The family of this 136-nucleotide RNA from Chara braunii is "U11 spliceosomal RNA". It is annotated as a spliceosomal small nuclear RNA. On this family, see Montzka and Steitz, Proc Natl Acad Sci U S A 1988: "Additional low-abundance human small nuclear ribonucleoproteins: U11, U12, etc". A search with the family's covariance model found it, with a score of 50 bits. Taxonomically the source falls in Chara (Eukaryota, Viridiplantae, Streptophyta, Charophyceae).
RNA sequence: AAAAAGGGCCAGUUGGCUAUAUAUGCCAGGUAUUGUUUAGGACUUGCACUAUAUGCAGUGGAUGGACAUGAAGACAUAUGGCUGGCAAAAUUUAUGAACCUUUCAAUGGGGUUGGCAUACUUUGCCGGCCCUUUAU
Numbered sequence: 001a002a003a004a005a006g007g008g009c010c011a012g013u014u015g016g017c018u019a020u021a022u023a024u025g026c027c028a029g030g031u032a033u034u035g036u037u038u039a040g041g042a043c044u045u046g047c048a049c050u051a052u053a054u055g056c057a058g059u060g061g062a063u064g065g066a067c068a069u070g071a072a073g074a075c076a077u078a079u080g081g082c083u084g085g086c087a088a089a090a091u092u093u094a095u096g097a098a099c100c101u102u103u104c105a106a107u108g109g110g111g112u113u114g115g116c117a118u119a120c121u122u123u124g125c126c127g128g129c130c131c132u133u134u135a136u
Base pairs, nucleotide, nucleotide: 008086009085010084011083012082014028015027016026017025030056031055032054033053037048040045059080060079062077063076064075105134106133108131110130111129112128113127114126115125116124117123